[Rfam]
RNA sequence: AAUGAUUCUAUGAAGGGACAAAGUAAUUCAGAGCUUCAUACUUAGAGAGGGAUGUCAUUGGCUGUAAACAUCCUUAUGAAACUGAAUGAAGAGACCUCCCUGAGAACUUACAGUGAAGAGGAAUUAAUUACAAUUAGUUUCCUUUGUAACUGUGUGGCGUAUACGGGCGUUAACCGAUAAGUGUAGGAUAUGAUAUUUAUCCUAAAUGUGGGUGGUACCACGGGUGUUUAUUGUUGUUUCAAUCUCUCGUCCCUGAU
Dot-bracket structure: ......((......((((.......((((((........(.........((((((............))))))).......)))))).........))))...))..(.(((((..................................)))))..).(((......)))..............(((((((.......))))))).....(((.......(((((.....................))))))))....